Shown here is a 72-nucleotide sequence, a member of the family "RAGATH-18 RNA". The family's consensus secondary structure is taken from published work. The family's RNA type in Rfam is small RNA. It is one of the family's seed sequences. Rfam's curators write: Actinobacteria, Firmicutes, Fusobacteria, Thermotogae (1 example).
RNA sequence: CCUUCGGAGUAUCAUACAAACGUCAGUAGCCUGUCCUUUGGGACGGCGAGAACGGAUACGAUGAACAAGGAA
Numbered sequence: 001c002c003u004u005c006g007g008a009g010u011a012u013c014a015u016a017c018a019a020a021c022g023u024c025a026g027u028a029g030c031c032u033g034u035c036c037u038u039u040g041g042g043a044c045g046g047c048g049a050g051a052a053c054g055g056a057u058a059c060g061a062u063g064a065a066c067a068a069g070g071a072a
Base pairs, nucleotide, nucleotide: 001070002069003068004067009059010058011057012056013055021054022053023052029047030046031045034042035041